[Rfam]
RNA sequence: UUGUGACGGGUUAGUCUUCUACGACCAGCUCCUUCUGAACUCCCCCAGGGUGGGAACGCAGCAAGGGUAAGAAGUUGUAGCGGUGCGAUAGAAGUUGCUAACCCAUUU
Numbered sequence: 001u002u003g004u005g006a007c008g009g010g011u012u013a014g015u016c017u018u019c020u021a022c023g024a025c026c027a028g029c030u031c032c033u034u035c036u037g038a039a040c041u042c043c044c045c046c047a048g049g050g051u052g053g054g055a056a057c058g059c060a061g062c063a064a065g066g067g068u069a070a071g072a073a074g075u076u077g078u079a080g081c082g083g084u085g086c087g088a089u090a091g092a093a094g095u096u097g098c099u100a101a102c103c104c105a106u107u108u
Base pairs, nucleotide, nucleotide: 008104009103010102011101012100013099014098015097017093018092019091020090021089022087023086024084025083
Description:
The record is a 108-nucleotide RNA sequence from Pedobacter cryophilus, which matches "Bacteroidales small SRP" in Rfam. Rfam links the family to the GO terms SRP-dependent cotranslational protein targeting to membrane, signal sequence recognition and signal recognition particle, plasma membrane targeting. A search with the family's covariance model found it, with a score of 106 bits. The literature on the family includes a 2020 paper in Nat Commun by Ryan et al., "A high-resolution transcriptome map identifies small RNA regulation of metabolism in the gut microbe Bacteroides thetaiotaomicron". NCBI's taxonomy places the organism under Bacteria, Sphingobacteriia, Sphingobacteriales, Sphingobacteriaceae, Pedobacter.